RNA sequence: AAAAAGGGUUUUUGCCUCUUAUGGCACAUAAGCUGCCACCAGGUUGCUUGUGCGGAAUCGCUAGCAAGAGAUUUCGGAAACAUAAUAUUUGGAAAUAGUGGCUGUCAGUUGUCAACUGCACUGGCGCCCUA
Numbered sequence: 001a002a003a004a005a006g007g008g009u010u011u012u013u014g015c016c017u018c019u020u021a022u023g024g025c026a027c028a029u030a031a032g033c034u035g036c037c038a039c040c041a042g043g044u045u046g047c048u049u050g051u052g053c054g055g056a057a058u059c060g061c062u063a064g065c066a067a068g069a070g071a072u073u074u075c076g077g078a079a080a081c082a083u084a085a086u087a088u089u090u091g092g093a094a095a096u097a098g099u100g101g102c103u104g105u106c107a108g109u110u111g112u113c114a115a116c117u118g119c120a121c122u123g124g125c126g127c128c129c130u131a
Stems, first nucleotide, its partner, number of pairs: 008081005013026004027052007035044003053076007100128003104125005110120003
RNA: U11 spliceosomal RNA